The record is a 74-nucleotide RNA sequence from Alligator mississippiensis, which matches "Mammalian CPEB3 ribozyme" in Rfam. Gene Ontology term of the family: RNA nuclease activity. The organism belongs to Alligator, within Eukaryota.
RNA sequence: GUUGCAUGUUCAAGGCCACAGCAGAAGUGUUCAUAGCACAGCCAUGUCAGAUGCCAGCAAAUCUGAAUUCUGCU
Dot-bracket structure: .............[[[...((((((((((.......))).]]]....(((((........)))))..)))))))